A member of the RNA family "DUF805b RNA" from Chitinophaga pinensis, 35 nucleotides long.
The sequence is in the family's curated seed alignment.
Taxonomically the source falls in Chitinophaga pinensis (Bacteria, Bacteroidota, Chitinophagia, Chitinophagales).
RNA sequence: AUGGCGUAUACCGAAAAGCCUGAAAAGAGUAGGUA
Dot-bracket structure: ..(((....[[[.....)))...........]]].